CRISPR RNA direct repeat element: a 37-nucleotide RNA from Candidatus Propionivibrio aalborgensis. It scores 47 bits against the family's covariance model. Its family is annotated with defense response in the Gene Ontology. The base pairs follow the family's consensus structure, which was predicted with WAR. The organism belongs to Propionivibrio, within Bacteria.

RNA sequence: GUUGCGCCCCCCGGCAACGGGGGGCGAGGAUUGAAAC
Numbered sequence: 001g002u003u004g005c006g007c008c009c010c011c012c013g014g015c016a017a018c019g020g021g022g023g024g025c026g027a028g029g030a031u032u033g034a035a036a037c
Stems, first nucleotide, its partner, number of pairs: 005026009
Dot-bracket structure: ....(((((((((....)))))))))...........